[Rfam]
RNA sequence: UGUGGCUGAGGUAGUAGAUUGAAUAGUUGUGGGGCCAUCGCGUCCUCCUCUGUGUUAACUAUACAGUCUACUGUCUUUCCUAA
Numbered sequence: 001u002g003u004g005g006c007u008g009a010g011g012u013a014g015u016a017g018a019u020u021g022a023a024u025a026g027u028u029g030u031g032g033g034g035c036c037a038u039c040g041c042g043u044c045c046u047c048c049u050c051u052g053u054g055u056u057a058a059c060u061a062u063a064c065a066g067u068c069u070a071c072u073g074u075c076u077u078u079c080c081u082a083a
Stems, first nucleotide, its partner, number of pairs: 001083001004080002008077014023062005032045004047054001
Dot-bracket structure: (..((..((((((((((((((.(((((....((((......)))).(......)...))))).)))))))))))))).))..)
The family of this 83-nucleotide sequence from Merluccius polli is "let-7 microRNA precursor family". This family represents the microRNAs (miRNA) let-7 and mir-98. let-7 was identified from a study of developmental timing in C. elegans, and was later shown to be part of a much larger class of non-coding RNAs termed miRNAs. A search with the family's covariance model found it, with a score of 62 bits. Rfam links the family to the GO terms RISC complex and miRNA-mediated post-transcriptional gene silencing. Taxonomically the source falls in Merluccius (Eukaryota, Metazoa, Neoteleostei, Gadoidei).